This 137-nucleotide RNA sequence from Tupaia belangeri belongs to the Rfam family "Small nucleolar RNA SNORA46". Its family is annotated with RNA processing and nucleolus in the Gene Ontology. The family's consensus secondary structure was predicted with RNAfold. Taxonomically the source falls in Tupaia belangeri (Eukaryota, Opisthokonta, Teleostomi, Dipnotetrapodomorpha). The match comes from Rfam's covariance-model search (125 bits). About the family: ACA46 is a member of the H/ACA class of snoRNA that guide the sites of modification of uridines to pseudouridines.

[Rfam]
Nucleotides: 137
Base pairs, nucleotide, nucleotide: 002059003058005056006055007054008053009052014047015046016045017044021041022040023039024038025037026036027035067132068131069130070129071128072126073125074124075123076122077121079119085115086114087113088111089110090109091108094105
Number, partner (000 for none) and nucleotide at each position: 001000a002059g003058u004000u005056u006055u007054a008053u009052a010000u011000u012000u013000a014047a015046g016045c017044c018000u019000g020000u021041g022040g023039a024038u025037g026036g027035g028000a029000a030000c031000u032000u033000u034000c035027c036026c037025c038024a039023u040022u041021c042000u043000u044017g045016g046015u047014u048000a049000u050000g051000c052009u053008g054007u055006a056005g057000u058003a059002c060000a061000a062000a063000a064000g065000a066000a067132u068131u069130c070129c071128u072126g073125a074124c075123u076122c077121c078000u079119u080000u081000g082000g083000c084000u085115g086114c087113a088111c089110g090109g091108c092000c093000a094105a095000c096000u097000u098000g099000c100000a101000c102000c103000a104000u105094u106000c107000u108091g109090c110089u111088g112000u113087u114086g115085c116000u117000c118000u119079a120000u121077g122076g123075a124074g125073u126072u127000g128071a129070g130069g131068a132067a133000c134000a135000u136000a137000c

It is annotated as an H/ACA-box small nucleolar RNA.